[Rfam]
RNA sequence: AAUCUGUCAUGGAUAACCUAGUGGAAGGCGCACCGCUAAGUCGGCAACCUAGCUGCGGCAGCAAUGUCAGCAGGUCAAAGGUGCCUGGUACGAAUCCUGGGGAAGUCUUUCUACUCGGGCGAGUAAUCCCCGACGCUAGAUGGCUUUAAGCUUGGAAAUGACCCUUGAGGGAAGAAAUUCUGCAGAGACAUCUCCACCCUGGGAUGGCGUCGCCAGAACACACCGUCCUGUUACCAGGACGCUGGCUGUUUGGUGUGACAACCACUUCAUCUU
Numbered sequence: 001a002a003u004c005u006g007u008c009a010u011g012g013a014u015a016a017c018c019u020a021g022u023g024g025a026a027g028g029c030g031c032a033c034c035g036c037u038a039a040g041u042c043g044g045c046a047a048c049c050u051a052g053c054u055g056c057g058g059c060a061g062c063a064a065u066g067u068c069a070g071c072a073g074g075u076c077a078a079a080g081g082u083g084c085c086u087g088g089u090a091c092g093a094a095u096c097c098u099g100g101g102g103a104a105g106u107c108u109u110u111c112u113a114c115u116c117g118g119g120c121g122a123g124u125a126a127u128c129c130c131c132g133a134c135g136c137u138a139g140a141u142g143g144c145u146u147u148a149a150g151c152u153u154g155g156a157a158a159u160g161a162c163c164c165u166u167g168a169g170g171g172a173a174g175a176a177a178u179u180c181u182g183c184a185g186a187g188a189c190a191u192c193u194c195c196a197c198c199c200u201g202g203g204a205u206g207g208c209g210u211c212g213c214c215a216g217a218a219c220a221c222a223c224c225g226u227c228c229u230g231u232u233a234c235c236a237g238g239a240c241g242c243u244g245g246c247u248g249u250u251u252g253g254u255g256u257g258a259c260a261a262c263c264a265c266u267u268c269a270u271c272u273u
Stems, first nucleotide, its partner, number of pairs: 002014003020266005029257007039247007048238003052234001056073001058071002061068001074227001078226001080224004085216005090210003094205009104145001106143002110140004115133005121128002146150001153196004158191002164187003171180003
Record summary: Rfam assigns this 273-nucleotide RNA sequence from Penicillium cosmopolitanum to the family "Fungal signal recognition particle RNA". By type it is a non-coding RNA gene. Pairs were carried over by alignment from the consensus structure, which is taken from published work. For this family Rfam cites "Towards the structure of the mammalian signal recognition particle" (Wild et al., Curr Opin Struct Biol, 2002). Gene Ontology terms of the family: signal recognition particle, plasma membrane targeting, SRP-dependent cotranslational protein targeting to membrane, signal sequence recognition and signal recognition particle, endoplasmic reticulum targeting. A search with the family's covariance model found it, with a score of 144 bits.